[Rfam]
RNA sequence: ACUUGCGGCGGCGAUGGAUCCCGCCUUUAACCGCCGGACGGCUGAUGGUUCCUACUACGCA
Number, nucleotide and partner (000 for none) at each position: 001a000002c000003u000004u000005g000006c000007g000008g000009c000010g025011g024012c023013g022014a000015u000016g052017g051018a050019u000020c048021c047022c013023g012024c011025c010026u000027u000028u000029a000030a000031c000032c000033g042034c041035c040036g000037g000038a000039c000040g035041g034042c033043u000044g000045a000046u000047g021048g020049u000050u018051c017052c016053u000054a000055c000056u000057a000058c000059g000060c000061a000

This 61-nucleotide RNA from Ancrocorticia populi belongs to the Rfam family "Fluoride riboswitch aptamer (crcB RNA motif)".
A search with the family's covariance model found it, with a score of 48 bits.